RNA sequence: GCGAAUUGCUACGAUAUCAUUAUAAUGCCCAACCUUAGUGCUGAUCGCCGUGCCAGUUUCGUCGUAAAAAGGUGACAAAUCGGUAGCAGCAGGUUAUUUUUU
Numbered sequence: 001g002c003g004a005a006u007u008g009c010u011a012c013g014a015u016a017u018c019a020u021u022a023u024a025a026u027g028c029c030c031a032a033c034c035u036u037a038g039u040g041c042u043g044a045u046c047g048c049c050g051u052g053c054c055a056g057u058u059u060c061g062u063c064g065u066a067a068a069a070a071g072g073u074g075a076c077a078a079a080u081c082g083g084u085a086g087c088a089g090c091a092g093g094u095u096a097u098u099u100u101u102u
Stems, first nucleotide, its partner, number of pairs: 008028002014023003031095005039085006045075005
The family of this 102-nucleotide RNA from Yersinia pseudotuberculosis is "Yersinia sRNA 190". The sRNA was identified by and is confirmed to have a stable secondary structure by using genome-wide structure probing at different temperatures. The function is unknown. The family's RNA type in Rfam is small RNA. The base pairs follow the family's consensus structure. It is one of the family's seed sequences.